Rfam assigns this 78-nucleotide RNA sequence from Scleropages formosus to the family "mir-92 microRNA precursor family". The literature on the family includes a 2003 paper in Dev Cell by Houbaviy et al., "Embryonic stem cell-specific MicroRNAs". The match comes from Rfam's covariance-model search (59 bits).

[Rfam]
RNA sequence: UUUUCUGUGCCGGUUGGGAUAGGCGGCAAUGCUUUCAACUAAUGUGGUAUUGCACUUGUCCCGGCCUGUUCAGGACUA
Numbered sequence: 001u002u003u004u005c006u007g008u009g010c011c012g013g014u015u016g017g018g019a020u021a022g023g024c025g026g027c028a029a030u031g032c033u034u035u036c037a038a039c040u041a042a043u044g045u046g047g048u049a050u051u052g053c054a055c056u057u058g059u060c061c062c063g064g065c066c067u068g069u070u071c072a073g074g075a076c077u078a
Stems, first nucleotide, its partner, number of pairs: 004074003009069002012066003016062005022056002026053008
From the family's description: This family represents the microRNA precursor mir-92. Its family is annotated with RISC complex and miRNA-mediated post-transcriptional gene silencing in the Gene Ontology. The family is grouped with related families in Rfam's "mir-92 microRNA precursor clan".